[Rfam]
The family of this 128-nucleotide RNA sequence from Pararhodobacter marinus is "Ruegeria cis8 sRNA".
For this family Rfam cites "Experimental Identification of Small Non-Coding RNAs in the Model Marine Bacterium Ruegeria pomeroyi DSS-3" (Rivers et al., Front Microbiol, 2016).

Nucleotides: 128
Stems, first nucleotide, its partner, number of pairs: 004017005026128002029125002033122002036119001038114003043109001045106001047104002050101001052099002061093003072084004
Number, partner (000 for none) and nucleotide at each position: 001000a002000u003000g004017g005016c006015c007014a008013g009000g010000a011000u012000c013008u014007u015006g016005g017004c018000g019000a020000u021000a022000u023000a024000g025000g026128g027127g028000a029125u030124c031000a032000g033122u034121g035000g036119c037000a038114g039113g040112u041000u042000g043109a044000g045106c046000a047104c048103c049000a050101g051000c052099a053098a054000c055000a056000c057000g058000a059000g060000a061093u062092u063091g064000c065000c066000g067000a068000u069000g070000a071000a072084c073083a074082u075081c076000g077000a078000g079000a080000u081075g082074a083073u084072g085000a086000c087000g088000g089000c090000c091063c092062a093061g094000a095000a096000g097000a098053u099052u100000u101050c102000g103048g104047g105000c106045g107000u108000g109043u110000c111000g112040g113039u114038c115000a116000u117000c118000a119036g120000a121034c122033g123000c124030g125029g126000c127027c128026c
By type it is a small RNA.
Rfam 15.1 lists 138 matches to the family in 133 species.
Lineage of the source: Bacteria > Pseudomonadati > Alphaproteobacteria > Rhodobacterales > Pararhodobacter.